[Rfam]
RNA sequence: AUUAUAUCACAGUGGCGGUACCGUAGUCAAUGAAGUUUAUCUGAGGCGCGGUUAUUGCUAGUUGAAAACUACUCCCAAUACCCCGCCUCGAUGGCGUGAAAUAUCGUUGUCGGAUGCAAUUUUUCUAGGCCGUAUCUGGC
Number, nucleotide and partner (000 for none) at each position: 001a000002u000003u000004a000005u000006a000007u000008c000009a000010c000011a000012g000013u000014g000015g000016c000017g000018g000019u000020a052021c051022c050023g049024u048025a000026g047027u046028c045029a000030a000031u000032g000033a000034a042035g041036u000037u000038u000039a000040u000041c035042u034043g000044a000045g028046g027047c026048g024049c023050g022051g021052u020053u000054a000055u000056u000057g000058c000059u000060a000061g000062u000063u000064g000065a000066a000067a000068a000069c000070u000071a000072c000073u000074c000075c000076c000077a000078a000079u000080a000081c000082c000083c000084c000085g117086c116087c000088u113089c112090g111091a110092u109093g108094g107095c106096g105097u000098g000099a000100a000101a000102u000103a000104u000105c096106g095107u094108u093109g092110u091111c090112g089113g088114a000115u000116g086117c085118a000119a000120u000121u000122u000123u000124u000125c000126u000127a000128g000129g140130c139131c138132g137133u000134a000135u000136c000137u132138g131139g130140c129
A member of the RNA family "U4 spliceosomal RNA" from Schistosoma mattheei, 140 nucleotides long. It scores 93 bits against the family's covariance model. The source organism's lineage runs through Eukaryota, Digenea, Schistosomatoidea, Schistosomatidae and Schistosoma.